[Rfam]
RNA sequence: AGGGGGCUGGUGACUAUCCAAUUGGGAGGAAGCUCCGCCCACCCAUUAUGUGCAACAAUCCCGAGAGGGAUUGAAUGGGGCAUAGAAACGACACGGCCUUAAAACAGAUGACGAUGAUAUCCGAAAAUUGAGGAGUUUUAAGGAAUCGGUGAAACGGCCCCAUUCUGCACGGGUGCAAGCAUUAGCGUUUAGCUGAAUGUCGCCGAAAUUACAGAAGGCGGGCUAUAGCCCCCA
Numbered sequence: 001a002g003g004g005g006g007c008u009g010g011u012g013a014c015u016a017u018c019c020a021a022u023u024g025g026g027a028g029g030a031a032g033c034u035c036c037g038c039c040c041a042c043c044c045a046u047u048a049u050g051u052g053c054a055a056c057a058a059u060c061c062c063g064a065g066a067g068g069g070a071u072u073g074a075a076u077g078g079g080g081c082a083u084a085g086a087a088a089c090g091a092c093a094c095g096g097c098c099u100u101a102a103a104a105c106a107g108a109u110g111a112c113g114a115u116g117a118u119a120u121c122c123g124a125a126a127a128u129u130g131a132g133g134a135g136u137u138u139u140a141a142g143g144a145a146u147c148g149g150u151g152a153a154a155c156g157g158c159c160c161c162a163u164u165c166u167g168c169a170c171g172g173g174u175g176c177a178a179g180c181a182u183u184a185g186c187g188u189u190u191a192g193c194u195g196a197a198u199g200u201c202g203c204c205g206a207a208a209u210u211a212c213a214g215a216a217g218g219c220g221g222g223c224u225a226u227a228g229c230c231c232c233c234a
Stems, first nucleotide, its partner, number of pairs: 002233007009204006018025002031224003035221005040175004050170005058071005073165002078160004094148003097143008117128002179186002
RNA: Archaeal RNase P
Organism: Methanothermococcus thermolithotrophicus